The record is a 78-nucleotide RNA sequence from Scaptodrosophila lebanonensis, which matches "mir-969 microRNA precursor family" in Rfam. For this family Rfam cites "Systematic discovery and characterization of fly microRNAs using 12 Drosophila genomes" (Stark et al., Genome Res, 2007). The match comes from Rfam's covariance-model search (79 bits).

[Rfam]
RNA sequence: CAUACGCACGAGUUCCACUAAUCAAGUUUUGAGCGCAUUUGAAAUACAAAAACUUGACACGUUGAGCUCGUCUGUGUG
Numbered sequence: 001c002a003u004a005c006g007c008a009c010g011a012g013u014u015c016c017a018c019u020a021a022u023c024a025a026g027u028u029u030u031g032a033g034c035g036c037a038u039u040u041g042a043a044a045u046a047c048a049a050a051a052a053c054u055u056g057a058c059a060c061g062u063u064g065a066g067c068u069c070g071u072c073u074g075u076g077u078g
Base pairs, nucleotide, nucleotide: 001078002077003076004075005074006073008071009070010069011068012067013066014065015064017062018061023056024055025054026053027052028051029050030049